The family of this 86-nucleotide RNA sequence from Gavia stellata is "Selenocysteine transfer RNA". A search with the family's covariance model found it, with a score of 52 bits. The source organism's lineage runs through Eukaryota, Deuterostomia, Dinosauria, Coelurosauria and Gavia.

RNA sequence: GCCCAGAUGACCCUCAGUAGUCUGGGGUGCAGGCUUCAGACCUGUACCUGUCUAGCGGCAGAGUGGUUCAUUUCCACCUUUCAGGU
Numbered sequence: 001g002c003c004c005a006g007a008u009g010a011c012c013c014u015c016a017g018u019a020g021u022c023u024g025g026g027g028u029g030c031a032g033g034c035u036u037c038a039g040a041c042c043u044g045u046a047c048c049u050g051u052c053u054a055g056c057g058g059c060a061g062a063g064u065g066g067u068u069c070a071u072u073u074c075c076a077c078c079u080u081u082c083a084g085g086u
Stems, first nucleotide, its partner, number of pairs: 001086003006081002009078001012027006028046006048061005063077004